[Rfam]
RNA: Small nucleolar RNA SNORA49
Organism: Ictidomys tridecemlineatus
RNA sequence: CGUCCUCAGCCUUACUCCAGGGGCUUUUUUGCCUGUGAAGUGCCCUGGCAUUGCCUGAGGAUAUAAGAGAAAGCACGUGCCUCCCCACAAGGCUCUGAUCUCGUGGGCCACAGGCUGAGCUGACAGU
Dot-bracket structure: ..(((((((.(.....(((((((((((.........))))).))))))....).)))))))..........(((.((.......((((..((........)))))).........)).)))......
Numbered sequence: 001c002g003u004c005c006u007c008a009g010c011c012u013u014a015c016u017c018c019a020g021g022g023g024c025u026u027u028u029u030u031g032c033c034u035g036u037g038a039a040g041u042g043c044c045c046u047g048g049c050a051u052u053g054c055c056u057g058a059g060g061a062u063a064u065a066a067g068a069g070a071a072a073g074c075a076c077g078u079g080c081c082u083c084c085c086c087a088c089a090a091g092g093c094u095c096u097g098a099u100c101u102c103g104u105g106g107g108c109c110a111c112a113g114g115c116u117g118a119g120c121u122g123a124c125a126g127u
Stems, first nucleotide, its partner, number of pairs: 003061007011053001017048006023041005072121003076117002085106004091102002